[Rfam]
RNA sequence: CUGAGGUGUAGGGCUUAGCUGGCCUGUGAUCACUGUCUGAUACCGCGUGUUCACAGUGGCUAAGUUCCGCAGCUCGG
Numbered sequence: 001c002u003g004a005g006g007u008g009u010a011g012g013g014c015u016u017a018g019c020u021g022g023c024c025u026g027u028g029a030u031c032a033c034u035g036u037c038u039g040a041u042a043c044c045g046c047g048u049g050u051u052c053a054c055a056g057u058g059g060c061u062a063a064g065u066u067c068c069g070c071a072g073c074u075c076g077g
Stems, first nucleotide, its partner, number of pairs: 011067010026054004031049002

mir-27 microRNA precursor family: a 77-nucleotide RNA sequence from Eleutherodactylus coqui. Pairs were carried over by alignment from the consensus structure, which was predicted with RNAalifold. Gene Ontology terms of the family: miRNA-mediated post-transcriptional gene silencing and RISC complex. The match comes from Rfam's covariance-model search (68 bits). On this family, see Yao et al., J Virol 2008: "MicroRNA profile of Marek's disease virus-transformed T-cell line MSB-1: predominance of virus-encoded microRNAs". Rfam 15.1 lists 1,440 matches to the family in 645 species.